RNA sequence: GGCCUGUGAAGCACCAAUAUUGUCCGUACCAUCUGAGAUACCCUCUUUGAUGUAUACUACUUUUUCAAUUCUGAGGCCU
Numbered sequence: 001g002g003c004c005u006g007u008g009a010a011g012c013a014c015c016a017a018u019a020u021u022g023u024c025c026g027u028a029c030c031a032u033c034u035g036a037g038a039u040a041c042c043c044u045c046u047u048u049g050a051u052g053u054a055u056a057c058u059a060c061u062u063u064u065u066c067a068a069u070u071c072u073g074a075g076g077c078c079u
Stems, first nucleotide, its partner, number of pairs: 001078004
Shown here is a 79-nucleotide sequence from Quercus lobata, a member of the family "small nucleolar RNA snoR117". The family's RNA type in Rfam is C/D-box small nucleolar RNA.